[Rfam]
RNA sequence: AUGCGCCCUGUGGGCUUCCCUUUGUCAUCCUAUGCCUGAGAGAUGCCUGGAGGCUGGGACGGUGAAGGGAAGCCGACGGGGCUGCCAG
Numbered sequence: 001a002u003g004c005g006c007c008c009u010g011u012g013g014g015c016u017u018c019c020c021u022u023u024g025u026c027a028u029c030c031u032a033u034g035c036c037u038g039a040g041a042g043a044u045g046c047c048u049g050g051a052g053g054c055u056g057g058g059a060c061g062g063u064g065a066a067g068g069g070a071a072g073c074c075g076a077c078g079g080g081g082c083u084g085c086c087a088g
Stems, first nucleotide, its partner, number of pairs: 017070006024063002028059005034054004
Dot-bracket structure: ................((((((.((..(((((.((((.............)))))))))..)).))))))..................

Annotation:
A member of the RNA family "mir-204 microRNA precursor family" from Pelodiscus sinensis, 88 nucleotides long. Its family is annotated with miRNA-mediated post-transcriptional gene silencing and RISC complex in the Gene Ontology. The source organism's lineage runs through Eukaryota, Metazoa, Bilateria, Teleostomi and Pelodiscus. A reference for the family is Murchison et al. (2008), "Conservation of small RNA pathways in platypus", Genome Res. Rfam 15.1 lists 1,730 matches to the family in 644 species.